Description:
The record is a 33-nucleotide RNA, which matches "DUF805b RNA" in Rfam. The base pairs follow the family's consensus structure, which is taken from published work.
RNA sequence: GUAGGGGAUUCCGAAAACCUAUUAGAGUAGGAA
Numbered sequence: 001g002u003a004g005g006g007g008a009u010u011c012c013g014a015a016a017a018c019c020u021a022u023u024a025g026a027g028u029a030g031g032a033a
Base pairs, nucleotide, nucleotide: 002021003020004019005018010032011031012030
The family is grouped with related families in Rfam's "DUF805 clan".
Rfam classes the family as a cis-regulatory element.